[Rfam]
RNA: RAGATH-13 RNA
Organism: Legionella israelensis
RNA sequence: GCUGAUUUGCCAGCUUUUCGAGCCUUGCAGCAUUCGCUGGGUAUCGCCUUUGAGUGAGCCGCUCGACCAACACUAAACCAAAGUCAGGGCAAAU
Numbered sequence: 001g002c003u004g005a006u007u008u009g010c011c012a013g014c015u016u017u018u019c020g021a022g023c024c025u026u027g028c029a030g031c032a033u034u035c036g037c038u039g040g041g042u043a044u045c046g047c048c049u050u051u052g053a054g055u056g057a058g059c060c061g062c063u064c065g066a067c068c069a070a071c072a073c074u075a076a077a078c079c080a081a082a083g084u085c086a087g088g089g090c091a092a093a094u
Stems, first nucleotide, its partner, number of pairs: 005094007018066006028039004040060003044057002